[Rfam]
Source information: Shown here is a 91-nucleotide RNA from Xenopus tropicalis, a member of the family "Small nucleolar RNA SNORD100". A search with the family's covariance model found it, with a score of 66 bits. Clan: SNORD100 clan.
RNA sequence: GUUGUAUGCUAUGAUGAUAACUUGGCUCCCUCUACUGAAUGCUAUGAGGAGAAAAGCCUAAAUGUUACCCAAUACUUCCUGAGUUUACAGC
Numbered sequence: 001g002u003u004g005u006a007u008g009c010u011a012u013g014a015u016g017a018u019a020a021c022u023u024g025g026c027u028c029c030c031u032c033u034a035c036u037g038a039a040u041g042c043u044a045u046g047a048g049g050a051g052a053a054a055a056g057c058c059u060a061a062a063u064g065u066u067a068c069c070c071a072a073u074a075c076u077u078c079c080u081g082a083g084u085u086u087a088c089a090g091c
Stems, first nucleotide, its partner, number of pairs: 001091006